[Rfam]
RNA sequence: GGCCUCCUGGUGCUUACCACAGGCUGUUUUUACCCUGACUGUGAGGAAAGAGGAGGCAAACCUGCCCCAUGUUCACCCCAGCCCAGGCCACUGUGCCCUGGUCUGUAUUGUGAAUGGGGAGACAUGG
Numbered sequence: 001g002g003c004c005u006c007c008u009g010g011u012g013c014u015u016a017c018c019a020c021a022g023g024c025u026g027u028u029u030u031u032a033c034c035c036u037g038a039c040u041g042u043g044a045g046g047a048a049a050g051a052g053g054a055g056g057c058a059a060a061c062c063u064g065c066c067c068c069a070u071g072u073u074c075a076c077c078c079c080a081g082c083c084c085a086g087g088c089c090a091c092u093g094u095g096c097c098c099u100g101g102u103c104u105g106u107a108u109u110g111u112g113a114a115u116g117g118g119g120a121g122a123c124a125u126g127g
Base pairs, nucleotide, nucleotide: 002057003056004055005054006053007052008051020041021040022039026033027032065119066118067117068116069115070114079105080104081103083101084100085099086098087096088095
Overview: A member of the RNA family "Small nucleolar RNA SNORA51" from Nannospalax galili, 127 nucleotides long. The match comes from Rfam's covariance-model search (115 bits). ACA51 is a member of the H/ACA class of snoRNA that guide the sites of modification of uridines to pseudouridines. By type it is an H/ACA-box small nucleolar RNA. The family's consensus secondary structure was predicted with PFOLD. The source organism's lineage runs through Eukaryota, Bilateria, Muroidea, Spalacidae and Nannospalax.